Description:
The record is a 141-nucleotide RNA sequence from Danionella cerebrum, which matches "U4 spliceosomal RNA" in Rfam. Pairs were carried over by alignment from the consensus structure, which is taken from published work. About the family: U4 small nuclear RNA (U4 snRNA) is a component of the major U2-dependent spliceosome. The match comes from Rfam's covariance-model search (124 bits).
[Rfam]
RNA sequence: AUCCUUGCGCAGUGGCAGUAUCGUAGCUUAUGAGGUUAAUCCGAGGCGCGAUUAUUGCUGGUUGAAAACUUUACCCAAUACCCCGCCGGGACGACUUGAAAUAUAGUCGGCUCUGGCAAUUUUUGACAGUUUCCAUGGAAA
Numbered sequence: 001a002u003c004c005u006u007g008c009g010c011a012g013u014g015g016c017a018g019u020a021u022c023g024u025a026g027c028u029u030a031u032g033a034g035g036u037u038a039a040u041c042c043g044a045g046g047c048g049c050g051a052u053u054a055u056u057g058c059u060g061g062u063u064g065a066a067a068a069c070u071u072u073a074c075c076c077a078a079u080a081c082c083c084c085g086c087c088g089g090g091a092c093g094a095c096u097u098g099a100a101a102u103a104u105a106g107u108c109g110g111c112u113c114u115g116g117c118a119a120u121u122u123u124u125g126a127c128a129g130u131u132u133c134c135a136u137g138g139a140a141a
Stems, first nucleotide, its partner, number of pairs: 020052005026047003034042002085117003088113003092109005130141004